[Rfam]
Rfam assigns this 106-nucleotide RNA from Hibiscus trionum to the family "Small nucleolar RNA snoR99". Taxonomically the source falls in Hibiscus (Eukaryota, Viridiplantae, Gunneridae, Pentapetalae).
RNA sequence: AUGGGAUAGAGGUUAUACGAGGUCCCAAUAAUGAUUUGUAACCAUUUUUCUACUUUGUCAGCUGAUCUACUUUUCCUGGCAGCUGAUUUUCAGGAAUGGUACAAUU
Numbered sequence: 001a002u003g004g005g006a007u008a009g010a011g012g013u014u015a016u017a018c019g020a021g022g023u024c025c026c027a028a029u030a031a032u033g034a035u036u037u038g039u040a041a042c043c044a045u046u047u048u049u050c051u052a053c054u055u056u057g058u059c060a061g062c063u064g065a066u067c068u069a070c071u072u073u074u075c076c077u078g079g080c081a082g083c084u085g086a087u088u089u090u091c092a093g094g095a096a097u098g099g100u101a102c103a104a105u106u
Stems, first nucleotide, its partner, number of pairs: 041100006057087008

Source information: Gene Ontology terms of the family: nucleolus and RNA processing.